[Rfam]
RNA sequence: AUGCUCCUUGUUGUGUUUAGUGUUGGCAGAUAUCUGAUCGCCGCUUGGCGAGUCGGAGUUGAACCUCGAACUUCCCCCUCCCCAUACGAAGUUCGAGGUUUUUUUUGCCUGCGA
Numbered sequence: 001a002u003g004c005u006c007c008u009u010g011u012u013g014u015g016u017u018u019a020g021u022g023u024u025g026g027c028a029g030a031u032a033u034c035u036g037a038u039c040g041c042c043g044c045u046u047g048g049c050g051a052g053u054c055g056g057a058g059u060u061g062a063a064c065c066u067c068g069a070a071c072u073u074c075c076c077c078c079u080c081c082c083c084a085u086a087c088g089a090a091g092u093u094c095g096a097g098g099u100u101u102u103u104u105u106u107g108c109c110u111g112c113g114a
Stems, first nucleotide, its partner, number of pairs: 033057006061102003064098011

This 114-nucleotide sequence from Pseudomonas flexibilis belongs to the Rfam family "Pseudomon-1/ErsA RNA". Rfam's curators write: Functions to regulate the AlgC enzyme. The source organism's lineage runs through Bacteria, Pseudomonadota, Gammaproteobacteria, Pseudomonadaceae and Pseudomonas. On this family, see Ferrara et al., Environ Microbiol 2015: "Post-transcriptional regulation of the virulence-associated enzyme AlgC by the sigma(22) -dependent small RNA ErsA of Pseudomonas aeruginosa".